[Rfam]
RNA sequence: CAUCCGCAUGACAGGUGUUCGGCCGGGGUCAAACCCGGUCGUUCUGAGAUUAUACUGUCAUAACUUGAUCUAGAUAAUACUAGCGAAAGGACAUGCGUUGCAUUGAUU
Numbered sequence: 001c002a003u004c005c006g007c008a009u010g011a012c013a014g015g016u017g018u019u020c021g022g023c024c025g026g027g028g029u030c031a032a033a034c035c036c037g038g039u040c041g042u043u044c045u046g047a048g049a050u051u052a053u054a055c056u057g058u059c060a061u062a063a064c065u066u067g068a069u070c071u072a073g074a075u076a077a078u079a080c081u082a083g084c085g086a087a088a089g090g091a092c093a094u095g096c097g098u099u100g101c102a103u104u105g106a107u108u
Base pairs, nucleotide, nucleotide: 006096007095008094009093010092011058012057013056014055016052017044020041021040022039023038024037025036026035027034064089065088066087070083071082072081073080